[Rfam]
This 274-nucleotide sequence from Mycoplasma crocodyli belongs to the Rfam family "Bacterial RNase P class B".
Gene Ontology terms of the family: ribonuclease P activity, dimeric ribonuclease P complex and tRNA processing.
NCBI's taxonomy places the organism under Bacteria, Mycoplasmatota, Mollicutes, Mycoplasmatales, Mycoplasma crocodyli.
On this family, see Frank and Pace, Annu Rev Biochem 1998: "Ribonuclease P: unity and diversity in a tRNA processing ribozyme".
RNA sequence: UGCAUUGGUUAACAGCUAUUAAAAAUAGAGGAAAGUCCGCUCUAGCAUUACCUGAGAUGGUAAUAGUGUUCAUGUCAAAUCAAAUAAAUUUGAGCUUAGACGACUAGUGCCACAGAGACGAGAAUAGUGAAACGCGGUAAACUCCAUGAGCUAGAAACCCAAAUAUUGGUAGGGGAAUUGAAGAGAGCUAAAUGAAGUUAUCUUUGAAAUCGAAAGAUUAGAUAAAUUGUUAACACAUCUUAUUUAUAGGAUGAACAGAAAGCGGCUUAUAGAU
Numbered sequence: 001u002g003c004a005u006u007g008g009u010u011a012a013c014a015g016c017u018a019u020u021a022a023a024a025a026u027a028g029a030g031g032a033a034a035g036u037c038c039g040c041u042c043u044a045g046c047a048u049u050a051c052c053u054g055a056g057a058u059g060g061u062a063a064u065a066g067u068g069u070u071c072a073u074g075u076c077a078a079a080u081c082a083a084a085u086a087a088a089u090u091u092g093a094g095c096u097u098a099g100a101c102g103a104c105u106a107g108u109g110c111c112a113c114a115g116a117g118a119c120g121a122g123a124a125u126a127g128u129g130a131a132a133c134g135c136g137g138u139a140a141a142c143u144c145c146a147u148g149a150g151c152u153a154g155a156a157a158c159c160c161a162a163a164u165a166u167u168g169g170u171a172g173g174g175g176a177a178u179u180g181a182a183g184a185g186a187g188c189u190a191a192a193u194g195a196a197g198u199u200a201u202c203u204u205u206g207a208a209a210u211c212g213a214a215a216g217a218u219u220a221g222a223u224a225a226a227u228u229g230u231u232a233a234c235a236c237a238u239c240u241u242a243u244u245u246a247u248a249g250g251a252u253g254a255a256c257a258g259a260a261a262g263c264g265g266c267u268u269a270u271a272g273a274u
Stems, first nucleotide, its partner, number of pairs: 004274003007270001008234007016028005033268003037265005042154005047064006070149005075093006094101001095099001102144002107142002109138003158174003178207007208219004236253007